TPP riboswitch aptamer (THI element): a 101-nucleotide RNA from [Eubacterium] brachy. The base pairs follow the family's consensus structure, which is taken from published work.
RNA sequence: AUUAGUUGCUAGGGGAGCAUUAUGCUGAGAAUUGGCUGCGACCAUUACCCUCAAAACCUGAUUCAGUUAACGCUGACGUAGGAAAGCAUUUUAUAGGAAAU
Numbered sequence: 001a002u003u004a005g006u007u008g009c010u011a012g013g014g015g016a017g018c019a020u021u022a023u024g025c026u027g028a029g030a031a032u033u034g035g036c037u038g039c040g041a042c043c044a045u046u047a048c049c050c051u052c053a054a055a056a057c058c059u060g061a062u063u064c065a066g067u068u069a070a071c072g073c074u075g076a077c078g079u080a081g082g083a084a085a086g087c088a089u090u091u092u093a094u095a096g097g098a099a100a101u
Stems, first nucleotide, its partner, number of pairs: 007088004011051004016045001017025003032044001034042001036040001057082004063076004
Dot-bracket structure: ......((((((((.((((...)))......(.(.(...).).))..)))).....((((..((((......))))..))))..)))).............